Annotation:
A member of the RNA family "Bacterial RNase P class A" from Candidatus Midichloria mitochondrii, 372 nucleotides long. Rfam classes the family as a ribozyme. Pairs were carried over by alignment from the consensus structure, which is taken from published work. A search with the family's covariance model found it, with a score of 282 bits. Gene Ontology terms of the family: tRNA processing, dimeric ribonuclease P complex and ribonuclease P activity.
RNA sequence: GCAGGUAGCUGGAUGGUUGCUGUAGCUUUUUGCUAUAGAGGAAAGUCCGGGCUUUAAAGAACAAUGAUGCCGGAUAACGUCCGGCGAGAGUAAUCUUAGGGAGAGUGCCACAGAAAAUAUACCGCUAUCUUACAUAGUAAGGGUGAAAAGGUGAGGUAAGAGCUCACCGGGCUUAUAGCAAUAUAUGUCGCAUGGUAAACCCCAUCAUUAAGCAAGACUAUAUAGGCAUAUAGCGAUGAAUGAUCGCACACAAGUUCUUAAGUGUAUAUAUGCGGGUAAGUCGCAUGAUCACAGGUAGCAAUACCUAGACCAGAUGAAUAGCCAUCAAAGGUUUUUCCUUUACAGAACCCGGCUUAUAGGCUACCUGUAUAU
Numbered sequence: 001g002c003a004g005g006u007a008g009c010u011g012g013a014u015g016g017u018u019g020c021u022g023u024a025g026c027u028u029u030u031u032g033c034u035a036u037a038g039a040g041g042a043a044a045g046u047c048c049g050g051g052c053u054u055u056a057a058a059g060a061a062c063a064a065u066g067a068u069g070c071c072g073g074a075u076a077a078c079g080u081c082c083g084g085c086g087a088g089a090g091u092a093a094u095c096u097u098a099g100g101g102a103g104a105g106u107g108c109c110a111c112a113g114a115a116a117a118u119a120u121a122c123c124g125c126u127a128u129c130u131u132a133c134a135u136a137g138u139a140a141g142g143g144u145g146a147a148a149a150g151g152u153g154a155g156g157u158a159a160g161a162g163c164u165c166a167c168c169g170g171g172c173u174u175a176u177a178g179c180a181a182u183a184u185a186u187g188u189c190g191c192a193u194g195g196u197a198a199a200c201c202c203c204a205u206c207a208u209u210a211a212g213c214a215a216g217a218c219u220a221u222a223u224a225g226g227c228a229u230a231u232a233g234c235g236a237u238g239a240a241u242g243a244u245c246g247c248a249c250a251c252a253a254g255u256u257c258u259u260a261a262g263u264g265u266a267u268a269u270a271u272g273c274g275g276g277u278a279a280g281u282c283g284c285a286u287g288a289u290c291a292c293a294g295g296u297a298g299c300a301a302u303a304c305c306u307a308g309a310c311c312a313g314a315u316g317a318a319u320a321g322c323c324a325u326c327a328a329a330g331g332u333u334u335u336u337c338c339u340u341u342a343c344a345g346a347a348c349c350c351g352g353c354u355u356a357u358a359g360g361c362u363a364c365c366u367g368u369a370u371a372u
Stems, first nucleotide, its partner, number of pairs: 001368010011357001012326007020038007043355003047352005052212003066205001068204002070084005085099001086097004100202002105200002107196003122142002124138005150168006169191001170189003174185004216282004226273006251262001289309002293306005